RNA sequence: GGUGAUAAAUCGUGUCGUGCAAUAGGCGCAGCGGACCCGGGGGCAGUACCCGGCGGCUCCACCACAAAGGCCUUGCAAGGGGCUUUCUGACGGGGCCGAACUAGGAUCGACGUGUGUUGAAAGGCGAUGCUUUUACCCGGCCCGUGUAAGCCGUUAAACUGUGCAAAACUCACAAGUGCCAACGAUAACGAAGCACUCGCCAUUGCAGCGUAA
Numbered sequence: 001g002g003u004g005a006u007a008a009a010u011c012g013u014g015u016c017g018u019g020c021a022a023u024a025g026g027c028g029c030a031g032c033g034g035a036c037c038c039g040g041g042g043g044c045a046g047u048a049c050c051c052g053g054c055g056g057c058u059c060c061a062c063c064a065c066a067a068a069g070g071c072c073u074u075g076c077a078a079g080g081g082g083c084u085u086u087c088u089g090a091c092g093g094g095g096c097c098g099a100a101c102u103a104g105g106a107u108c109g110a111c112g113u114g115u116g117u118u119g120a121a122a123g124g125c126g127a128u129g130c131u132u133u134u135a136c137c138c139g140g141c142c143c144g145u146g147u148a149a150g151c152c153g154u155u156a157a158a159c160u161g162u163g164c165a166a167a168a169c170u171c172a173c174a175a176g177u178g179c180c181a182a183c184g185a186u187a188a189c190g191a192a193g194c195a196c197u198c199g200c201c202a203u204u205g206c207a208g209c210g211u212a213a
Stems, first nucleotide, its partner, number of pairs: 001137005015127004027116003031113003037053005054098007138153004
Dot-bracket structure: (((((.........((((........(((.(((...(((((.......)))))(((((((...............................)))))))............)))))).......)))).....)))))((((........))))............................................................

Rfam assigns this 213-nucleotide sequence from Sphingobium amiense to the family "permuted transfer-messenger RNA".
Rfam describes the family as follows. Bacterial tmRNA, also known as 10Sa RNA or SsrA, is named for its dual tRNA and mRNA-like properties. Its role is to liberate the mRNA from a stalled ribosome. To accomplish this part of the tmRNA is used as a reading frame that ends in a translation stop signal.